[Rfam]
RNA sequence: CCCCUUGCAAUUCACCCAUGACGGCCCUACUUUAAUCUUGUCCUUCGGGACUAUGGACAUAAACGCGCUCGUAAUAAGCGGUUCGGACCCGGGGGCGGUACCCGGCGGCUCCACCAAACAUCCUUCAUUUGGGGAUCAUGGGGCCGAAAUAGGAUCGACGAACGUCUAAAGGGGUUGCUUUGUUUCGGUGAGAUACCACCGUUAUCGGUUCAAACUGUACAAUUGCAAAUGACAAUCGUGCUCCAGUUGCGAUGGCCGCGUAAGCGGUUUCAGCGACUGAAAUCUAAGUCCUUAGGCUUUGCAGCUUAAGGCGGGGUUCGCAGGUACCUGGCAACAGAAACCUGCACU
Numbered sequence: 001c002c003c004c005u006u007g008c009a010a011u012u013c014a015c016c017c018a019u020g021a022c023g024g025c026c027c028u029a030c031u032u033u034a035a036u037c038u039u040g041u042c043c044u045u046c047g048g049g050a051c052u053a054u055g056g057a058c059a060u061a062a063a064c065g066c067g068c069u070c071g072u073a074a075u076a077a078g079c080g081g082u083u084c085g086g087a088c089c090c091g092g093g094g095g096c097g098g099u100a101c102c103c104g105g106c107g108g109c110u111c112c113a114c115c116a117a118a119c120a121u122c123c124u125u126c127a128u129u130u131g132g133g134g135a136u137c138a139u140g141g142g143g144c145c146g147a148a149a150u151a152g153g154a155u156c157g158a159c160g161a162a163c164g165u166c167u168a169a170a171g172g173g174g175u176u177g178c179u180u181u182g183u184u185u186c187g188g189u190g191a192g193a194u195a196c197c198a199c200c201g202u203u204a205u206c207g208g209u210u211c212a213a214a215c216u217g218u219a220c221a222a223u224u225g226c227a228a229a230u231g232a233c234a235a236u237c238g239u240g241c242u243c244c245a246g247u248u249g250c251g252a253u254g255g256c257c258g259c260g261u262a263a264g265c266g267g268u269u270u271c272a273g274c275g276a277c278u279g280a281a282a283u284c285u286a287a288g289u290c291c292u293u294a295g296g297c298u299u300u301g302c303a304g305c306u307u308a309a310g311g312c313g314g315g316g317u318u319c320g321c322a323g324g325u326a327c328c329u330g331g332c333a334a335c336a337g338a339a340a341c342c343u344g345c346a347c348u
Base pairs, nucleotide, nucleotide: 040051041050042049043048055185056184057183058182059181065178066177067175068174069173070172079164080163083161084160085159089105090104091103092102093101106146107145108144109143110142111141112140186201187200188199189198192211193210195209196208197207314329315328316327317326320345321344322343323342324341325340
This 348-nucleotide RNA from Sulfitobacter sp. D7 belongs to the Rfam family "Alphaproteobacteria transfer-messenger RNA".
About the family: Bacterial tmRNA, also known as 10Sa RNA or SsrA, is named for its dual tRNA and mRNA-like properties. Its role is to liberate the mRNA from a stalled ribosome. To accomplish this part of the tmRNA is used as a reading frame that ends in a translation stop signal. The broken mRNA is replaced in the ribosome by the tmRNA and translation of the tmRNA leads to addition of a proteolysis tag to the incomplete protein enabling recognition by a protease. Recently a number of permuted tmRNA genes have been found encoded in two parts. tmRNAs have been identified in eubacteria and some chloroplasts but are absent from archaeal and eukaryote nuclear genomes.